[Rfam]
RNA: Plant small nucleolar RNA U3
RNA sequence: ACGACCUUACUUGAACAGGAUCUGUUCUGAAGGUUGUACAACUUGAUCUGCAUAAUAUAUACAGACAAGCACAAAAGUCUGGAGGAGGAAUGAUGGCUCUAUGGCUUGAGCGCGAUUACUGAGACUGUUAAUGGGUUAUUCCCAUCAAUGGUCUCCCGAUGAACGUCCUGUCUGCUCAUUCCAAGCAGGCAGUGAAAGCCAUAGAGCGUUCUGACAGAUA
Numbered sequence: 001a002c003g004a005c006c007u008u009a010c011u012u013g014a015a016c017a018g019g020a021u022c023u024g025u026u027c028u029g030a031a032g033g034u035u036g037u038a039c040a041a042c043u044u045g046a047u048c049u050g051c052a053u054a055a056u057a058u059a060u061a062c063a064g065a066c067a068a069g070c071a072c073a074a075a076a077g078u079c080u081g082g083a084g085g086a087g088g089a090a091u092g093a094u095g096g097c098u099c100u101a102u103g104g105c106u107u108g109a110g111c112g113c114g115a116u117u118a119c120u121g122a123g124a125c126u127g128u129u130a131a132u133g134g135g136u137u138a139u140u141c142c143c144a145u146c147a148a149u150g151g152u153c154u155c156c157c158g159a160u161g162a163a164c165g166u167c168c169u170g171u172c173u174g175c176u177c178a179u180u181c182c183a184a185g186c187a188g189g190c191a192g193u194g195a196a197a198g199c200c201a202u203a204g205a206g207c208g209u210u211c212u213g214a215c216a217g218a219u220a
Stems, first nucleotide, its partner, number of pairs: 001037002003034001005033003013027006043068003048064003052060002077219005096207012110166003121155009131145005168192009